[Rfam]
The family of this 176-nucleotide sequence from Actinomadura viridis is "c-di-AMP riboswitch aptamer (ydaO/yuaA leader)".
This family represents a conserved RNA structure found upstream of the ydaO and yuaA genes in Bacillus subtilis and related genes in other bacteria.
Its family is annotated with cyclic-di-AMP binding and regulation of gene expression in the Gene Ontology.
The source organism's lineage runs through Bacteria, Actinomycetota, Streptosporangiales, Thermomonosporaceae and Actinomadura.
RNA sequence: CGGCCGGACAAGCCGAGUCCCGCGGCACAGCUGCCCGGGAGCCGGGAACCCACAGUCUGCGGGCCCGGGGCGUUCAACGCCCCGGGCCUUCGACGGGGUGAAUUCACCUCCUGGUGAUAGGGCUGACUCCGGCCCGAACCCGUCAGCUAACCCGGUAGGCGAUGAGGAGAGGAGAG
Numbered sequence: 001c002g003g004c005c006g007g008a009c010a011a012g013c014c015g016a017g018u019c020c021c022g023c024g025g026c027a028c029a030g031c032u033g034c035c036c037g038g039g040a041g042c043c044g045g046g047a048a049c050c051c052a053c054a055g056u057c058u059g060c061g062g063g064c065c066c067g068g069g070g071c072g073u074u075c076a077a078c079g080c081c082c083c084g085g086g087c088c089u090u091c092g093a094c095g096g097g098g099u100g101a102a103u104u105c106a107c108c109u110c111c112u113g114g115u116g117a118u119a120g121g122g123c124u125g126a127c128u129c130c131g132g133c134c135c136g137a138a139c140c141c142g143u144c145a146g147c148u149a150a151c152c153c154g155g156u157a158g159g160c161g162a163u164g165a166g167g168a169g170a171g172g173a174g175a176g
Stems, first nucleotide, its partner, number of pairs: 012160003018040005041156006051095001096141003104117004120135004